[Rfam]
RNA sequence: UGGCCUGGCUCUGUGUGGAAGACUAGUGAUUUUGUUGUUGUGUUUGUAAAGGUGACAACAAAUCAUAGCCUGCCAUACAGCCCAGGCUG
Numbered sequence: 001u002g003g004c005c006u007g008g009c010u011c012u013g014u015g016u017g018g019a020a021g022a023c024u025a026g027u028g029a030u031u032u033u034g035u036u037g038u039u040g041u042g043u044u045u046g047u048a049a050a051g052g053u054g055a056c057a058a059c060a061a062a063u064c065a066u067a068g069c070c071u072g073c074c075a076u077a078c079a080g081c082c083c084a085g086g087c088u089g
Stems, first nucleotide, its partner, number of pairs: 002088005008083001011080008020071002023068002026066007034059006
This 89-nucleotide RNA from Ficedula albicollis belongs to the Rfam family "mir-7 microRNA precursor family". Gene Ontology terms of the family: miRNA-mediated post-transcriptional gene silencing and RISC complex. Taxonomically the source falls in Ficedula (Eukaryota, Eumetazoa, Deuterostomia, Euteleostomi). On this family, see Lagos-Quintana et al., Science 2001: "Identification of novel genes coding for small expressed RNAs". Rfam's curators write: This family represents the microRNA (miRNA) precursor mir-7. Rfam 15.1 lists 2,589 matches to the family in 797 species.